[Rfam]
The family of this 111-nucleotide RNA from Nocardioides sp. Root79 is "TPP riboswitch aptamer (THI element)". The match comes from Rfam's covariance-model search (58 bits).
RNA sequence: CCGACCACCCACGGGAGUCCGCGGCAGCGGGCUGAGAGGGAGCUGGAGCCGCUCCGACCGUCACACCUGAUCCGGAUCAUGCCGGCGAAGGAACGGACGAGAUGACUGCUC
Number, nucleotide and partner (000 for none) at each position: 001c000002c000003g000004a000005c000006c099007a000008c000009c096010c095011a061012c060013g059014g058015g000016a000017g032018u031019c030020c029021g028022c000023g000024g000025c000026a000027g000028c021029g020030g019031g018032c017033u000034g000035a000036g000037a000038g000039g055040g054041a053042g052043c051044u000045g000046g000047a000048g000049c000050c000051g043052c042053u041054c040055c039056g000057a000058c014059c013060g012061u011062c000063a000064c000065a000066c091067c090068u089069g000070a000071u000072c085073c084074g083075g082076a000077u000078c000079a000080u000081g000082c075083c074084g073085g072086c000087g000088a000089a068090g067091g066092a000093a000094c000095g010096g009097a000098c000099g006100a000101g000102a000103u000104g000105a000106c000107u000108g000109c000110u000111c000